[Rfam]
RNA sequence: AUAUAGUGGAGACCAGAAACCACUCAAAAAACGGGGCGUUACUGAAAAGCCUUAUGAGUAAGGAAAUUU
Number, nucleotide and partner (000 for none) at each position: 001a000002u000003a000004u000005a000006g023007u022008g021009g020010a000011g000012a000013c000014c000015a000016g000017a000018a000019a000020c009021c008022a007023c006024u000025c000026a000027a000028a000029a000030a000031a000032c000033g000034g000035g051036g050037c049038g000039u000040u000041a000042c063043u062044g000045a000046a000047a000048a000049g037050c036051c035052u000053u000054a000055u000056g000057a000058g000059u000060a000061a000062g043063g042064a000065a000066a000067u000068u000069u000